Small nucleolar RNA SNORA3/SNORA45 family: a 133-nucleotide sequence from Castor canadensis. The literature on the family includes a 2001 paper in EMBO J by Huttenhofer et al., "RNomics: an experimental approach that identifies 201 candidates for novel, small, non-messenger RNAs in mouse". The organism belongs to Castor, within Eukaryota. Its Rfam clan is "SNORA3 clan". It scores 75 bits against the family's covariance model. Rfam describes the family as follows. The members of this family belong to the H/ACA class of snoRNAs which are thought to guide the sites of modification of uridines to pseudouridines. This family includes mouse snoMBI-28 and human homologues ACA3 (SNORA3) and ACA3-2 (SNORA45). Both ACA3 and ACA3-2 share the same host gene. MBI-28, ACA3 and ACA3-2 are all predicted to guide the pseudouridylation of residues in 28S rRNA.
[Rfam]
RNA sequence: GCCAAGGCUAGAGUCACAGUCUGACACAGCACUUGUCCUGGUGUGGUAGAGUUCUCGGGGAGAAUCUGCUCAUCUUGAUUCCCCUGGGGGGGCAGUUAGUGCCCCCCCACCAAUGCCCAGAGCAAAAACAUGC
Numbered sequence: 001g002c003c004a005a006g007g008c009u010a011g012a013g014u015c016a017c018a019g020u021c022u023g024a025c026a027c028a029g030c031a032c033u034u035g036u037c038c039u040g041g042u043g044u045g046g047u048a049g050a051g052u053u054c055u056c057g058g059g060g061a062g063a064a065u066c067u068g069c070u071c072a073u074c075u076u077g078a079u080u081c082c083c084c085u086g087g088g089g090g091g092g093c094a095g096u097u098a099g100u101g102c103c104c105c106c107c108c109a110c111c112a113a114u115g116c117c118c119a120g121a122g123c124a125a126a127a128a129c130a131u132g133c
Stems, first nucleotide, its partner, number of pairs: 002058002005055002007052003012047001015045004020040001023037004070124001073121003077117001081115001085112003088106006